[Rfam]
RNA sequence: GUGGUCCGGCGGGCGGCCUCCGGUCCGUCUCGGCGACGAGACGGGCUGUGGAACCCCCUCACCGCCGCGGACCUGUAGCCGCGUAAGCGGCACGGCGAGAUGCCGUGGAUCAGCUGUUGCUCUUGCCACGGAUGGGGAUGACCUACUUUUAGUGGUAGCGACGACGUGGCAAGCUUGCGUGGAACGCUGAUCCUGCAGGGGGAGGGUCAAGCAGGAGCCUAUGAGGCUCCGCGGGGAGGCUCCGGGUAGACCCUUAGACAGAUGCCGCCUAAACAUAAGGGGGGGUACGACCGGCCAC
Numbered sequence: 001g002u003g004g005u006c007c008g009g010c011g012g013g014c015g016g017c018c019u020c021c022g023g024u025c026c027g028u029c030u031c032g033g034c035g036a037c038g039a040g041a042c043g044g045g046c047u048g049u050g051g052a053a054c055c056c057c058c059u060c061a062c063c064g065c066c067g068c069g070g071a072c073c074u075g076u077a078g079c080c081g082c083g084u085a086a087g088c089g090g091c092a093c094g095g096c097g098a099g100a101u102g103c104c105g106u107g108g109a110u111c112a113g114c115u116g117u118u119g120c121u122c123u124u125g126c127c128a129c130g131g132a133u134g135g136g137g138a139u140g141a142c143c144u145a146c147u148u149u150u151a152g153u154g155g156u157a158g159c160g161a162c163g164a165c166g167u168g169g170c171a172a173g174c175u176u177g178c179g180u181g182g183a184a185c186g187c188u189g190a191u192c193c194u195g196c197a198g199g200g201g202g203a204g205g206g207u208c209a210a211g212c213a214g215g216a217g218c219c220u221a222u223g224a225g226g227c228u229c230c231g232c233g234g235g236g237a238g239g240c241u242c243c244g245g246g247u248a249g250a251c252c253c254u255u256a257g258a259c260a261g262a263u264g265c266c267g268c269c270u271a272a273a274c275a276u277a278a279g280g281g282g283g284g285g286u287a288c289g290a291c292c293g294g295c296c297a298c
Stems, first nucleotide, its partner, number of pairs: 001298003006294004010289002012269006021048012053286002055283005060202001062200002065234006073198005078091005092106005107193002110190004119178002122173008143158004205252004215242005